[Rfam]
RNA sequence: UGCCAUUGCUAAGUCAAGGCUUCUCCCUGCGACUUUGUGUCGUGUUUUUCUACCUUGGGAGUAUGUCUGUUACAGCUCUGGCAGAUUGACGCGGAUCCGCGCCGAACUUCUUUCUGAAGCUAGGCUGACUGGUUUUCGUUUUGAAAGCCUGUCGUAAGGGUCAAGCUGUGUUCUGUUUUUGAGUUGAGAUCUGCUUCUGCUCGAUGAGUGGCCCAUAGCAGUUCUCUUAGUAACAUUUCACACAUUC
Numbered sequence: 001u002g003c004c005a006u007u008g009c010u011a012a013g014u015c016a017a018g019g020c021u022u023c024u025c026c027c028u029g030c031g032a033c034u035u036u037g038u039g040u041c042g043u044g045u046u047u048u049u050c051u052a053c054c055u056u057g058g059g060a061g062u063a064u065g066u067c068u069g070u071u072a073c074a075g076c077u078c079u080g081g082c083a084g085a086u087u088g089a090c091g092c093g094g095a096u097c098c099g100c101g102c103c104g105a106a107c108u109u110c111u112u113u114c115u116g117a118a119g120c121u122a123g124g125c126u127g128a129c130u131g132g133u134u135u136u137c138g139u140u141u142u143g144a145a146a147g148c149c150u151g152u153c154g155u156a157a158g159g160g161u162c163a164a165g166c167u168g169u170g171u172u173c174u175g176u177u178u179u180u181g182a183g184u185u186g187a188g189a190u191c192u193g194c195u196u197c198u199g200c201u202c203g204a205u206g207a208g209u210g211g212c213c214c215a216u217a218g219c220a221g222u223u224c225u226c227u228u229a230g231u232a233a234c235a236u237u238u239c240a241c242a243c244a245u246u247c
Stems, first nucleotide, its partner, number of pairs: 003081003017068004021063001023061004029043005092168003096164001101125003105121001107119004126154003132148007170241002175236002178233001186226004191221004197211006
The family of this 247-nucleotide RNA from Aspergillus homomorphus is "Small nucleolar RNA snR191". The base pairs follow the family's consensus structure, which was predicted with WAR. Clan: SNORA74 clan. The organism belongs to Aspergillus homomorphus, within Eukaryota. It scores 51 bits against the family's covariance model.